[Rfam]
Shown here is a 73-nucleotide RNA from Erinaceus europaeus, a member of the family "mir-483 microRNA precursor family".
It scores 67 bits against the family's covariance model.
Pairs were carried over by alignment from the consensus structure, which was predicted with RNAalifold.
Lineage of the source: Eukaryota > Vertebrata > Gnathostomata > Theria > Erinaceus.
RNA sequence: GAGGGGGAGGACGGGAGGAACGGAAGGCGGGGUUUGUCCAGUCCUCACUCCUCUCCUCCCGUCUUCUCCCUCU
Numbered sequence: 001g002a003g004g005g006g007g008a009g010g011a012c013g014g015g016a017g018g019a020a021c022g023g024a025a026g027g028c029g030g031g032g033u034u035u036g037u038c039c040a041g042u043c044c045u046c047a048c049u050c051c052u053c054u055c056c057u058c059c060c061g062u063c064u065u066c067u068c069c070c071u072c073u
Base pairs, nucleotide, nucleotide: 004069005068006067007066008065009064010063011062012061013060014059015058016057017056018055022053024052026050027049029048031046